[Rfam]
RNA: c-di-AMP riboswitch aptamer (ydaO/yuaA leader)
RNA sequence: AUUAAAUUAACGCUGAAUCCAAAAGGAGCGGGGGAACCAACUAUCCGGGGUGAAUCCGUAAGGAAGGGCCAACUCUUUCAGCCCUAACCCGUCAGCUAACCUCGUAAGCGUAGAAAGGGGAGUU
Numbered sequence: 001a002u003u004a005a006a007u008u009a010a011c012g013c014u015g016a017a018u019c020c021a022a023a024a025g026g027a028g029c030g031g032g033g034g035a036a037c038c039a040a041c042u043a044u045c046c047g048g049g050g051u052g053a054a055u056c057c058g059u060a061a062g063g064a065a066g067g068g069c070c071a072a073c074u075c076u077u078u079c080a081g082c083c084c085u086a087a088c089c090c091g092u093c094a095g096c097u098a099a100c101c102u103c104g105u106a107a108g109c110g111u112a113g114a115a116a117g118g119g120g121a122g123u124u
Stems, first nucleotide, its partner, number of pairs: 011110004018027003028105006038047001048090003056063002066084004